[Rfam]
RNA sequence: UAUCAGGGCAUCUAGGGUUCCGAUUCCAGCAAUGGAGUGUCUGGACCGAGAGUUGUCCGGUCUCAGUUAGCUGAGAUUCCACGGAGGGAUAAAAGCCCGGGAGGU
Numbered sequence: 001u002a003u004c005a006g007g008g009c010a011u012c013u014a015g016g017g018u019u020c021c022g023a024u025u026c027c028a029g030c031a032a033u034g035g036a037g038u039g040u041c042u043g044g045a046c047c048g049a050g051a052g053u054u055g056u057c058c059g060g061u062c063u064c065a066g067u068u069a070g071c072u073g074a075g076a077u078u079c080c081a082c083g084g085a086g087g088g089a090u091a092a093a094a095g096c097c098c099g100g101g102a103g104g105u
Stems, first nucleotide, its partner, number of pairs: 007057004012052001015047002020044002022041001023038006059078008080100001082103001086098003
RNA: Guanidine-I riboswitch aptamer